[Rfam]
RNA sequence: ACCAAAUGGAGUUCAGAAACCAUUUUAAAAAUGAGGCAAUACCUACGAAGCCGUUAGAGUAAGAAAAUU
Numbered sequence: 001a002c003c004a005a006a007u008g009g010a011g012u013u014c015a016g017a018a019a020c021c022a023u024u025u026u027a028a029a030a031a032u033g034a035g036g037c038a039a040u041a042c043c044u045a046c047g048a049a050g051c052c053g054u055u056a057g058a059g060u061a062a063g064a065a066a067a068u069u
Stems, first nucleotide, its partner, number of pairs: 006023004035052003042063001
Dot-bracket structure: .....((((..........))))...........(((....[.......)))..........]......
A member of the RNA family "DUF805 RNA" from Bacteroidales bacterium Barb4, 69 nucleotides long. Clan: DUF805 clan. By type it is a cis-regulatory element. A search with the family's covariance model found it, with a score of 52 bits.